About this RNA
A member of the RNA family "tRNA", 73 nucleotides long. The base pairs follow the family's consensus structure, which is taken from published work. It is one of the family's seed sequences. The family is grouped with related families in Rfam's "tRNA clan". By type it is a transfer RNA.
RNA sequence: ACCUUGAAGGCUCAAUAGUUAGAGCGCCAAGUCUUGUAAACUUGGAGAGAGGGUUAAAGUCCCUCUCAAGGCU
Number, nucleotide and partner (000 for none) at each position: 001a000002c071003c070004u069005u068006g067007a066008a000009g000010g025011c024012u023013c022014a000015a000016u000017a000018g000019u000020u000021a000022g013023a012024g011025c010026g000027c000028c044029a043030a042031g041032u040033c000034u000035u000036g000037u000038a000039a000040a032041c031042u030043u029044g028045g000046a000047g000048a000049g065050a064051g063052g062053g061054u000055u000056a000057a000058a000059g000060u000061c053062c052063c051064u050065c049066u007067c006068a005069a004070g003071g002072c000073u000